Source information
A member of the RNA family "Small nucleolar RNA snoR145" from Carex littledalei, 151 nucleotides long. On this family, see Chen and Wu, Nucleic Acids Res 2009: "Mining small RNA sequencing data: a new approach to identify small nucleolar RNAs in Arabidopsis". Taxonomically the source falls in Carex subgen. Euthyceras (Eukaryota, Tracheophyta, Spermatophyta, Cyperaceae). A search with the family's covariance model found it, with a score of 86 bits.
[Rfam]
RNA sequence: AAUCGAAGGACCCAGCAGGGAAGCGUAGAUCUCCAUUAGUUGAGGCUUCUCUAACAUUUACAUAAACCUUCGUAGAGAAAUUAAUUCCGUAUAGUUAUGAUGCCUUGAUUUUUUUUUGUUUCAUGGCAUCUGAAACAGCGGUUACAUUUCA
Numbered sequence: 001a002a003u004c005g006a007a008g009g010a011c012c013c014a015g016c017a018g019g020g021a022a023g024c025g026u027a028g029a030u031c032u033c034c035a036u037u038a039g040u041u042g043a044g045g046c047u048u049c050u051c052u053a054a055c056a057u058u059u060a061c062a063u064a065a066a067c068c069u070u071c072g073u074a075g076a077g078a079a080a081u082u083a084a085u086u087c088c089g090u091a092u093a094g095u096u097a098u099g100a101u102g103c104c105u106u107g108a109u110u111u112u113u114u115u116u117u118g119u120u121u122c123a124u125g126g127c128a129u130c131u132g133a134a135a136c137a138g139c140g141g142u143u144a145c146a147u148u149u150c151a
Stems, first nucleotide, its partner, number of pairs: 004072006011020003025051001031044003035040001087141004092137001099130002102127003106123003